[Rfam]
RNA sequence: CAAGGAUCGGGCCUGCAUGGAGUGCGGGCGCCGAUGGCUACGCCGGGCGCCGAUCCCCCGGCCAACA
Numbered sequence: 001c002a003a004g005g006a007u008c009g010g011g012c013c014u015g016c017a018u019g020g021a022g023u024g025c026g027g028g029c030g031c032c033g034a035u036g037g038c039u040a041c042g043c044c045g046g047g048c049g050c051c052g053a054u055c056c057c058c059c060g061g062c063c064a065a066c067a
Stems, first nucleotide, its partner, number of pairs: 006035005042062006